[Rfam]
RNA sequence: GCUCUUGCCAACGCUGCGUUUCUUUGCUCACAAACAGACACUGAGCCCCGCUCAGCCCGUCACUAGAUGCAAAUGAGAAAUUCGGAGUAAUCUUCACCUUCACUCGCUAUCCGUCUUUAUGGCGGCUCUGGCAGCUGCCCGUAAGGGUCUGGCGUGAAUUCACGUCUGCAUCGGGCAUCAGAAAUCUCAGGGCCAGCCGACGCAGUUCUUUCGGGUUCUGUCGCUCGUGUUGUACCCCUAUGGGAGCCUAUGCGAAGAUUGUGUGCGCGCGAAAGCGCGCGACACUUUAGUGCAAUACGCGGCGUACUAUAUUCUAGUAUCAUUCGAUUCUGAUUACUCUGGCGAGAGC
Numbered sequence: 001g002c003u004c005u006u007g008c009c010a011a012c013g014c015u016g017c018g019u020u021u022c023u024u025u026g027c028u029c030a031c032a033a034a035c036a037g038a039c040a041c042u043g044a045g046c047c048c049c050g051c052u053c054a055g056c057c058c059g060u061c062a063c064u065a066g067a068u069g070c071a072a073a074u075g076a077g078a079a080a081u082u083c084g085g086a087g088u089a090a091u092c093u094u095c096a097c098c099u100u101c102a103c104u105c106g107c108u109a110u111c112c113g114u115c116u117u118u119a120u121g122g123c124g125g126c127u128c129u130g131g132c133a134g135c136u137g138c139c140c141g142u143a144a145g146g147g148u149c150u151g152g153c154g155u156g157a158a159u160u161c162a163c164g165u166c167u168g169c170a171u172c173g174g175g176c177a178u179c180a181g182a183a184a185u186c187u188c189a190g191g192g193c194c195a196g197c198c199g200a201c202g203c204a205g206u207u208c209u210u211u212c213g214g215g216u217u218c219u220g221u222c223g224c225u226c227g228u229g230u231u232g233u234a235c236c237c238c239u240a241u242g243g244g245a246g247c248c249u250a251u252g253c254g255a256a257g258a259u260u261g262u263g264u265g266c267g268c269g270c271g272a273a274a275g276c277g278c279g280c281g282a283c284a285c286u287u288u289a290g291u292g293c294a295a296u297a298c299g300c301g302g303c304g305u306a307c308u309a310u311a312u313u314c315u316a317g318u319a320u321c322a323u324u325c326g327a328u329u330c331u332g333a334u335u336a337c338u339c340u341g342g343c344g345a346g347a348g349c
Stems, first nucleotide, its partner, number of pairs: 001349004008342003013303007023073004037061002083332005092257004137148004151166005168253004173248002190239003304320006